[Rfam]
RNA sequence: GUCCCUCCUCUCCCGGGGAGGUAAAGCGGCCAUAUGCGGCCGCUACCUCUUCAACUGGGCGGUGAGGACA
Numbered sequence: 001g002u003c004c005c006u007c008c009u010c011u012c013c014c015g016g017g018g019a020g021g022u023a024a025a026g027c028g029g030c031c032a033u034a035u036g037c038g039g040c041c042g043c044u045a046c047c048u049c050u051u052c053a054a055c056u057g058g059g060c061g062g063u064g065a066g067g068a069c070a
Stems, first nucleotide, its partner, number of pairs: 006065002009062002012059005017050005026040002029037002
Rfam assigns this 70-nucleotide sequence to the family "Hepatitis C virus stem-loop VII". By type it is a cis-regulatory element. Rfam's curators put it in the seed alignment. Pairs were carried over by alignment from the consensus structure, which was predicted with RNAfold.